[Rfam]
RNA: c-di-AMP riboswitch aptamer (ydaO/yuaA leader)
Organism: Megamonas hypermegale
RNA sequence: UUAUAUUACAGGCCGAAUCUAACUCAGGAGCGGGAGAACCAUUUCUUUGGGGUGAAUUCAUAAUUAUAUAUGAAAGAAUAACUCUUAUUCUAACCCGUCAGCUAAUCUCGUAGGCUUUAAUGAGAGGAGUC
Number, nucleotide and partner (000 for none) at each position: 001u000002u000003a000004u000005a000006u000007u000008a000009c000010a000011g116012g115013c114014c113015g000016a000017a000018u029019c028020u027021a000022a000023c000024u000025c000026a000027g020028g019029a018030g111031c110032g109033g108034g107035a106036g000037a000038a000039c000040c049041a048042u000043u000044u000045c000046u000047u000048u041049g040050g096051g095052g094053u000054g000055a000056a000057u000058u073059c072060a071061u070062a000063a000064u000065u000066a000067u000068a000069u000070a061071u060072g059073a058074a000075a000076g090077a089078a088079u087080a000081a000082c000083u000084c000085u000086u000087a079088u078089u077090c076091u000092a000093a000094c052095c051096c050097g000098u000099c000100a000101g000102c000103u000104a000105a000106u035107c034108u033109c032110g031111u030112a000113g014114g013115c012116u011117u000118u000119a000120a000121u000122g000123a000124g000125a000126g000127g000128a000129g000130u000131c000